[Rfam]
Notes: A member of the RNA family "Glycine riboswitch aptamer" from Limnohabitans sp. 63ED37-2, 118 nucleotides long. A reference for the family is Babina et al. (2017), "In Vivo Behavior of the Tandem Glycine Riboswitch in Bacillus subtilis", MBio. Taxonomically the source falls in Limnohabitans (Bacteria, Pseudomonadati, Pseudomonadota, Betaproteobacteria).
Nucleotides: 118
Stems, first nucleotide, its partner, number of pairs: 006113001008111006020054011056098003059094002063092003069085005
Number, partner (000 for none) and nucleotide at each position: 001000c002000c003000a004000a005000c006113u007000c008111u009110g010109u011108c012107a013106g014000g015000a016000g017000a018000g019000u020054g021053c022052c023051u024050g025049a026048c027047u028046u029045g030044u031000c032000u033000u034000u035000c036000c037000u038000u039000g040000u041000g042000a043000a044030a045029c046028a047027a048026g049025u050024c051023a052022g053021g054020c055000c056098g057097c058096c059094g060093a061000a062000g063092g064091c065090g066000c067000a068000g069085g070084c071083g072082g073081u074000u075000g076000g077000a078000u079000a080000a081073a082072c083071c084070g085069c086000u087000g088000a089000a090065c091064g092063c093060u094059c095000a096058g097057g098056c099000a100000a101000a102000a103000g104000g105000a106013c107012u108011g109010a110009c111008a112000a113006a114000a115000c116000g117000c118000u